[Rfam]
About this RNA
The family of this 108-nucleotide RNA from Oryza meyeriana is "Small nucleolar RNA Z118/Z121/Z120". On this family, see Chen et al., Nucleic Acids Res 2003: "The high diversity of snoRNAs in plants: identification and comparative study of 120 snoRNA genes from Oryza sativa". The match comes from Rfam's covariance-model search (118 bits). By type it is a C/D-box small nucleolar RNA. Rfam links the family to the GO terms nucleolus and RNA processing.
RNA sequence: UGUUUGCUGUGAUGAUUCUUGCAAGGACGGUAUCUGAGUAAGGAACCACUUAAAAGAGUGCUCCUCACAUGAUUAUACCCAAUACUGAUCAGAGACUCUGAGCAAACA
Dot-bracket structure: (((((((..............................((.(((...................))).)).................................)))))))